The family of this 60-nucleotide RNA sequence from Fructilactobacillus lindneri is "Bacillus-plasmid RNA".
It scores 67 bits against the family's covariance model.

[Rfam]
RNA sequence: GCUGUCAAUGGUAGCGGACGAGCGUAGCGUGGGAGCAUAAGGAAUUGACAGCAAACAGUU
Numbered sequence: 001g002c003u004g005u006c007a008a009u010g011g012u013a014g015c016g017g018a019c020g021a022g023c024g025u026a027g028c029g030u031g032g033g034a035g036c037a038u039a040a041g042g043a044a045u046u047g048a049c050a051g052c053a054a055a056c057a058g059u060u
Stems, first nucleotide, its partner, number of pairs: 001052009
Dot-bracket structure: (((((((((..................................)))))))))........
Lineage of the source: Bacteria > Bacillota > Lactobacillaceae > Fructilactobacillus > Fructilactobacillus lindneri. The family's consensus secondary structure is taken from published work.